Overview:
A member of the RNA family "tRNA" from Dinothrombium tinctorium, 73 nucleotides long. About the family: Transfer RNA (tRNA) molecules are approximately 80 nucleotides in length. By type it is a transfer RNA. The family's consensus secondary structure is taken from published work. A search with the family's covariance model found it, with a score of 74 bits.
RNA sequence: GUCCCUGUAGCGCAGUGGAGAGCGCGUUGGACUUCUAAUCCAAAGGUCCCGGGUUCGAAUCCCGGCAGGGAUG
Numbered sequence: 001g002u003c004c005c006u007g008u009a010g011c012g013c014a015g016u017g018g019a020g021a022g023c024g025c026g027u028u029g030g031a032c033u034u035c036u037a038a039u040c041c042a043a044a045g046g047u048c049c050c051g052g053g054u055u056c057g058a059a060u061c062c063c064g065g066c067a068g069g070g071a072u073g
Stems, first nucleotide, its partner, number of pairs: 001072007010025004027043005049065005